Shown here is a 107-nucleotide RNA sequence from Sorghum bicolor, a member of the family "MIR5565 microRNA precursor family". NCBI's taxonomy places the organism under Eukaryota, Magnoliopsida, Mesangiospermae, Poaceae, Sorghum. The match comes from Rfam's covariance-model search (95 bits). Pairs were carried over by alignment from the consensus structure, which was predicted with RNAalifold.
Nucleotides: 107
Stems, first nucleotide, its partner, number of pairs: 004106009014096001016094006023087001025085008035076004040071004045066003
Number, partner (000 for none) and nucleotide at each position: 001000a002000u003000u004106g005105u006104c007103g008102g009101a010100u011099u012098c013000a014096c015000u016094u017093u018092a019091a020090u021089c022000c023087a024000c025085a026084u027083g028082u029081g030080u031079u032078g033000g034000a035076g036075u037074g038073g039000a040071u041070u042069g043068g044000g045066g046065u047064g048000g049000a050000a051000u052000u053000u054000a055000g056000u057000u058000a059000a060000g061000u062000u063000u064047c065046a066045c067000u068043c069042c070041a071040a072000c073038c074037c075036a076035c077000c078032c079031a080030a081029c082028a083027c084026a085025u086000a087023u088000a089021g090020a091019u092018u093017a094016a095000u096014g097000c098012g099011a100010a101009u102008c103007c104006g105005a106004c107000u